[Rfam]
RNA sequence: GAGAAUUAUGUGGGAAUCAUAAUGGCCGAAAAUCUAAGGUUUCUUGGGGAAGGUUCGUCCGCCCAAGGUAAGCCGGGAGCUAAGGCGAGGCCGAAAGGCGUAGUCGAUGCACAUACGGUUGAGAUUCCGUAGCCGCCGAAACUUAAACCAGAAGGACACUUGGAGCUAGCUGGACCCGGGCGUUGGUCGACCCGGGCGUAAGGGACCGAAAAUAAGUAGGGAAGCCAGCGAAUGACGAGGCGAGAAAAGUUCUGGUGUAUGCUAAGGCGCCCGUACCGCAAACCGACACAGGUAGAUGAGGAGAGGAUCCUAAGGCCAA
Numbered sequence: 001g002a003g004a005a006u007u008a009u010g011u012g013g014g015a016a017u018c019a020u021a022a023u024g025g026c027c028g029a030a031a032a033u034c035u036a037a038g039g040u041u042u043c044u045u046g047g048g049g050a051a052g053g054u055u056c057g058u059c060c061g062c063c064c065a066a067g068g069u070a071a072g073c074c075g076g077g078a079g080c081u082a083a084g085g086c087g088a089g090g091c092c093g094a095a096a097g098g099c100g101u102a103g104u105c106g107a108u109g110c111a112c113a114u115a116c117g118g119u120u121g122a123g124a125u126u127c128c129g130u131a132g133c134c135g136c137c138g139a140a141a142c143u144u145a146a147a148c149c150a151g152a153a154g155g156a157c158a159c160u161u162g163g164a165g166c167u168a169g170c171u172g173g174a175c176c177c178g179g180g181c182g183u184u185g186g187u188c189g190a191c192c193c194g195g196g197c198g199u200a201a202g203g204g205a206c207c208g209a210a211a212a213u214a215a216g217u218a219g220g221g222a223a224g225c226c227a228g229c230g231a232a233u234g235a236c237g238a239g240g241c242g243a244g245a246a247a248a249g250u251u252c253u254g255g256u257g258u259a260u261g262c263u264a265a266g267g268c269g270c271c272c273g274u275a276c277c278g279c280a281a282a283c284c285g286a287c288a289c290a291g292g293u294a295g296a297u298g299a300g301g302a303g304a305g306g307a308u309c310c311u312a313a314g315g316c317c318a319a
Base pairs, nucleotide, nucleotide: 005023006022007021008020009019010018024317025316026315027314032297033296034295035294038277039276043067044066045065046064047063048062052060053059074273075272076271077270079110080109084105085104086103088101090099091098092097114131115130116129117128118127134269135268136267137266140263142261144259145258149254150253151252152251153250159239160238161237169229170228171227172226173225175196176195177194178193179192180191197202206220207219209217283292284291299311300310301309302308
Rfam assigns this 319-nucleotide part of an RNA from bacterium 1xD42-67 to the family "Bacterial large subunit ribosomal RNA".
Pairs were carried over by alignment from the consensus structure, which is taken from published work.